[Rfam]
Description
This 68-nucleotide sequence from Virgibacillus necropolis belongs to the Rfam family "Bacillaceae-1 RNA". It scores 64 bits against the family's covariance model.
RNA sequence: GAAAAAGGAACUUCUAUUAAGGUCGCCCACGUCCUGUGGGCAACAUAGAAGUCAGCACCUCGUGUGCA
Numbered sequence: 001g002a003a004a005a006a007g008g009a010a011c012u013u014c015u016a017u018u019a020a021g022g023u024c025g026c027c028c029a030c031g032u033c034c035u036g037u038g039g040g041c042a043a044c045a046u047a048g049a050a051g052u053c054a055g056c057a058c059c060u061c062g063u064g065u066g067c068a
Stems, first nucleotide, its partner, number of pairs: 011051007026040005055067004